[Rfam]
RNA sequence: GAGCAUGUCAGACCACUGUUUCCCUCUCAAGCCAUAGGGAGUGAUGGUGUCUAAAAACAUGCUAGACUAACACUUCCUGGGGUUCACAGGGCCACAGAUCAUACAGAAUUGAUCAAUUGGUAGUAUCAGACUCCAACAGAG
Numbered sequence: 001g002a003g004c005a006u007g008u009c010a011g012a013c014c015a016c017u018g019u020u021u022c023c024c025u026c027u028c029a030a031g032c033c034a035u036a037g038g039g040a041g042u043g044a045u046g047g048u049g050u051c052u053a054a055a056a057a058c059a060u061g062c063u064a065g066a067c068u069a070a071c072a073c074u075u076c077c078u079g080g081g082g083u084u085c086a087c088a089g090g091g092c093c094a095c096a097g098a099u100c101a102u103a104c105a106g107a108a109u110u111g112a113u114c115a116a117u118u119g120g121u122a123g124u125a126u127c128a129g130a131c132u133c134c135a136a137c138a139g140a141g
Stems, first nucleotide, its partner, number of pairs: 003062006020043001022041001024039003079134004091121002097114005

Small nucleolar RNA U109: a 141-nucleotide RNA sequence from Channa argus. The family's consensus secondary structure was predicted with WAR. The literature on the family includes a 1981 paper in Biochem Biophys Res Commun by Reddy et al., "Pseudouridine residues in the 5'-terminus of uridine-rich nuclear RNA I (U1 RNA)". Rfam classes the family as an H/ACA-box small nucleolar RNA. Rfam links the family to the GO terms nucleolus and RNA processing.